[Rfam]
Source information: A member of the RNA family "Eukaryotic large subunit ribosomal RNA" from Chloropicon primus, 600 nucleotides of a longer RNA. The base pairs follow the family's consensus structure, which is taken from published work. Lineage of the source: Eukaryota > Viridiplantae > Chlorophyta > Chloropicaceae > Chloropicon.

RNA sequence: UAAACAGCGGGGAAAGAAGACCCUGUUGAGCUUGACUCUAGUCCGACUUUGUGAAAUGACUUGAGAGGUGUAGCAUAAGUGGGAGCUUCGGCGACAGUGAAAUACCACUACUUUCAACGUUAUUUUACUUAUUCCAUGAAACGGAGCUUGGCUUCGGCCUUUCUUCUAGACCUAAGGAUUACCAAUCCGAGUGGAAGACAUUGUCAGGUGGGGAGUUUGGCUGGGGCGGCACAUCUACUAAAAGAUAACGUAGGUGUCCUAAGAUGAGCUCAACGAGAACGGAAAUCUCGUGUAGAACAAAAGGGUAAAAGCUCAUUUGAUUUUGAUUUUCAGUACGAAUACAAACUGUGAAAGCAUGGCCUAUCGAUCCUUUAGUCUUUCGGAAUUUGAAGCUAGAGGUGUCAGAAAAGUUACCACAGGGAUAACUGGCUUGUGGCAGCCAAGCGUUCAUAGCGACGUUGCUUUUUGAUCCUUCGAUGUCGGCUCUUCCUAUCAUUGUGAAGCAGAAUUCACCAAGUGUUGGAUUGUUCACCCACCAAUAGGGAACGUGAGCUGGGUUUAGACCGUCGUGAGACAGGUUAGUUUUACCCUACUGUUUAC
Numbered sequence: 001u002a003a004a005c006a007g008c009g010g011g012g013a014a015a016g017a018a019g020a021c022c023c024u025g026u027u028g029a030g031c032u033u034g035a036c037u038c039u040a041g042u043c044c045g046a047c048u049u050u051g052u053g054a055a056a057u058g059a060c061u062u063g064a065g066a067g068g069u070g071u072a073g074c075a076u077a078a079g080u081g082g083g084a085g086c087u088u089c090g091g092c093g094a095c096a097g098u099g100a101a102a103u104a105c106c107a108c109u110a111c112u113u114u115c116a117a118c119g120u121u122a123u124u125u126u127a128c129u130u131a132u133u134c135c136a137u138g139a140a141a142c143g144g145a146g147c148u149u150g151g152c153u154u155c156g157g158c159c160u161u162u163c164u165u166c167u168a169g170a171c172c173u174a175a176g177g178a179u180u181a182c183c184a185a186u187c188c189g190a191g192u193g194g195a196a197g198a199c200a201u202u203g204u205c206a207g208g209u210g211g212g213g214a215g216u217u218u219g220g221c222u223g224g225g226g227c228g229g230c231a232c233a234u235c236u237a238c239u240a241a242a243a244g245a246u247a248a249c250g251u252a253g254g255u256g257u258c259c260u261a262a263g264a265u266g267a268g269c270u271c272a273a274c275g276a277g278a279a280c281g282g283a284a285a286u287c288u289c290g291u292g293u294a295g296a297a298c299a300a301a302a303g304g305g306u307a308a309a310a311g312c313u314c315a316u317u318u319g320a321u322u323u324u325g326a327u328u329u330u331c332a333g334u335a336c337g338a339a340u341a342c343a344a345a346c347u348g349u350g351a352a353a354g355c356a357u358g359g360c361c362u363a364u365c366g367a368u369c370c371u372u373u374a375g376u377c378u379u380u381c382g383g384a385a386u387u388u389g390a391a392g393c394u395a396g397a398g399g400u401g402u403c404a405g406a407a408a409a410g411u412u413a414c415c416a417c418a419g420g421g422a423u424a425a426c427u428g429g430c431u432u433g434u435g436g437c438a439g440c441c442a443a444g445c446g447u448u449c450a451u452a453g454c455g456a457c458g459u460u461g462c463u464u465u466u467u468g469a470u471c472c473u474u475c476g477a478u479g480u481c482g483g484c485u486c487u488u489c490c491u492a493u494c495a496u497u498g499u500g501a502a503g504c505a506g507a508a509u510u511c512a513c514c515a516a517g518u519g520u521u522g523g524a525u526u527g528u529u530c531a532c533c534c535a536c537c538a539a540u541a542g543g544g545a546a547c548g549u550g551a552g553c554u555g556g557g558u559u560u561a562g563a564c565c566g567u568c569g570u571g572a573g574a575c576a577g578g579u580u581a582g583u584u585u586u587a588c589c590c591u592a593c594u595g596u597u598u599a600c
Stems, first nucleotide, its partner, number of pairs: 001599007010591003014586002022420004027416002029412005035216004042208002045205003051128010061117007078109005085092002132196005142189004150159003176183001219232001220230003233255006258359002264316006270296002273291006297306002321345003326340004347356003370398006378392004429470001431468001433467001435463006444454002481556001482554004486548001487545005494519002498513005521535003525531001562580004566575003